Lysine riboswitch aptamer: a 179-nucleotide sequence from Anaerospora hongkongensis. A search with the family's covariance model found it, with a score of 115 bits. Rfam links the family to the GO term lysine biosynthetic process. The source organism's lineage runs through Bacteria, Bacillota, Negativicutes, Selenomonadales and Anaerospora. From the family's description: Riboswitches are metabolite binding domains within certain messenger RNAs that serve as precision sensors for their corresponding targets. Allosteric rearrangement of mRNA structure is mediated by ligand binding, and this results in modulation of gene expression. This family includes riboswitches that sense lysine in a number of genes involved in lysine metabolism, including lysC.
[Rfam]
RNA sequence: GGUUAAGGUAGAGGUGCGGUCAACAGGAGUACUUUCAGGAAGAGUGGUGUCGAUGAACUGGAAGAAAAGGGUUGAUUGCCGAAGUGUGAAAUGAUGCCGGUCUUUCACACUGGUUUUACAUCGAAUAGGUGCUAAAACUGUCACUGAAGGUUGUUCUUUGGUGGAGCGCUAUCUCACUA
Numbered sequence: 001g002g003u004u005a006a007g008g009u010a011g012a013g014g015u016g017c018g019g020u021c022a023a024c025a026g027g028a029g030u031a032c033u034u035u036c037a038g039g040a041a042g043a044g045u046g047g048u049g050u051c052g053a054u055g056a057a058c059u060g061g062a063a064g065a066a067a068a069g070g071g072u073u074g075a076u077u078g079c080c081g082a083a084g085u086g087u088g089a090a091a092u093g094a095u096g097c098c099g100g101u102c103u104u105u106c107a108c109a110c111u112g113g114u115u116u117u118a119c120a121u122c123g124a125a126u127a128g129g130u131g132c133u134a135a136a137a138c139u140g141u142c143a144c145u146g147a148a149g150g151u152u153g154u155u156c157u158u159u160g161g162u163g164g165a166g167c168g169c170u171a172u173c174u175c176a177c178u179a
Stems, first nucleotide, its partner, number of pairs: 006174006016079009032064007083111009093101001112139007119131004141164007